Annotation
Shown here is a 107-nucleotide RNA from Prunus armeniaca, a member of the family "MIR6274 microRNA precursor family". Gene Ontology terms of the family: RISC complex and miRNA-mediated post-transcriptional gene silencing. The match comes from Rfam's covariance-model search (82 bits).
Nucleotides: 107
Stems, first nucleotide, its partner, number of pairs: 002106001004104002011094009022083013036069014
Number, partner (000 for none) and nucleotide at each position: 001000a002106g003000a004104u005103a006000u007000a008000a009000u010000u011094u012093u013092u014091u015090g016089u017088u018087a019086u020000u021000c022083c023082c024081g025080g026079u027078c028077a029076a030075u031074a032073a033072c034071a035000c036069a037068a038067u039066g040065a041064c042063a043062u044061g045060u046059a047058a048057g049056a050000u051000a052000a053000c054000u055000u056049u057048u058047u059046u060045a061044u062043a063042u064041g065040u066039c067038a068037u069036u070000a071034u072033g073032u074031u075030a076029u077028u078027g079026a080025c081024c082023g083022g084000a085000a086019a087018u088017a089016a090015c091014a092013a093012a094011a095000c096000a097000g098000u099000g100000c101000u102000c103005u104004a105000c106002c107000u